[Rfam]
RNA: Purine riboswitch aptamer
Organism: Cellulosilyticum lentocellum
RNA sequence: UAAUUUUAAAAAGCAGAGCAUCGUAUAAAGUUGAAGAUAUGGUUCAACAGUUUCUACCAAAUCACCUUAAAGGAUUUGACUACGAUAUGAAUCUUAUAUUUU
Numbered sequence: 001u002a003a004u005u006u007u008a009a010a011a012a013g014c015a016g017a018g019c020a021u022c023g024u025a026u027a028a029a030g031u032u033g034a035a036g037a038u039a040u041g042g043u044u045c046a047a048c049a050g051u052u053u054c055u056a057c058c059a060a061a062u063c064a065c066c067u068u069a070a071a072g073g074a075u076u077u078g079a080c081u082a083c084g085a086u087a088u089g090a091a092u093c094u095u096a097u098a099u100u101u102u
Base pairs, nucleotide, nucleotide: 018088020086021085022084023083024082025081030048031047032046033045034044035043058078059077060076061075062074063073